A member of the RNA family "small nucleolar RNA snoR117" from Corymbia citriodora, 86 nucleotides long. The organism belongs to Corymbia citriodora, within Eukaryota. It scores 54 bits against the family's covariance model.

[Rfam]
RNA sequence: GGUACCUGUGAUGAAGAAAUUGUCCGUACCAUCUGAGACGAACGUCUCUGAUCAAAGCUUCAUCAUCUCUAGCUUUUCUGAGGCCU
Numbered sequence: 001g002g003u004a005c006c007u008g009u010g011a012u013g014a015a016g017a018a019a020u021u022g023u024c025c026g027u028a029c030c031a032u033c034u035g036a037g038a039c040g041a042a043c044g045u046c047u048c049u050g051a052u053c054a055a056a057g058c059u060u061c062a063u064c065a066u067c068u069c070u071a072g073c074u075u076u077u078c079u080g081a082g083g084c085c086u
Base pairs, nucleotide, nucleotide: 001085002084005083006082

Its family is annotated with RNA processing and nucleolus in the Gene Ontology.
Rfam 15.1 lists 419 matches to the family in 211 species.
It is annotated as a C/D-box small nucleolar RNA.
The base pairs follow the family's consensus structure, which was predicted with RNAalifold.